[Rfam]
RNA: Glycine riboswitch aptamer
Nucleotides: 118
Base pairs, nucleotide, nucleotide: 005114006113007112008111009110011109012108013107020046021045022044048098049097050096051094052093055092056091057090061085062084063083064082
Number, partner (000 for none) and nucleotide at each position: 001000u002000g003000a004000c005114g006113a007112u008111g009110g010000u011109u012108g013107g014000g015000a016000g017000a018000g019000a020046c021045c022044c023000g024000g025000c026000g027000g028000g029000g030000a031000a032000g033000c034000g035000u036000u037000c038000c039000c040000u041000g042000c043000g044022g045021g046020g047000c048098a049097c050096c051094g052093a053000a054000g055092g056091a057090g058000c059000a060000a061085g062084u063083c064082g065000a066000c067000g068000g069000c070000u071000a072000g073000c074000c075000g076000g077000c078000c079000g080000g081000a082064c083063g084062a085061u086000c087000a088000a089000u090057c091056u092055c093052u094051c095000a096050g097049g098048u099000a100000c101000a102000a103000g104000g105000a106000a107013c108012c109011g110009c111008c112007a113006u114005u115000c116000g117000a118000c